[Rfam]
RNA sequence: UUCUUAUUAAGAGAGGCGGAGGGAUCAGGCCCUGUGAAGCCCGGCAACCGUUCCAACUGUUAAGAGCCGCAGCGUUCUAACCUUGGAAGUCCGGUGCCAAUUCCUCCAGAACCGUCGGUUCUGGGAGAUGAGAG
Numbered sequence: 001u002u003c004u005u006a007u008u009a010a011g012a013g014a015g016g017c018g019g020a021g022g023g024a025u026c027a028g029g030c031c032c033u034g035u036g037a038a039g040c041c042c043g044g045c046a047a048c049c050g051u052u053c054c055a056a057c058u059g060u061u062a063a064g065a066g067c068c069g070c071a072g073c074g075u076u077c078u079a080a081c082c083u084u085g086g087a088a089g090u091c092c093g094g095u096g097c098c099a100a101u102u103c104c105u106c107c108a109g110a111a112c113c114g115u116c117g118g119u120u121c122u123g124g125g126a127g128a129u130g131a132g133a134g
Stems, first nucleotide, its partner, number of pairs: 001134008013042001015041003021032003027105003043098004048094002050090003102126001107123006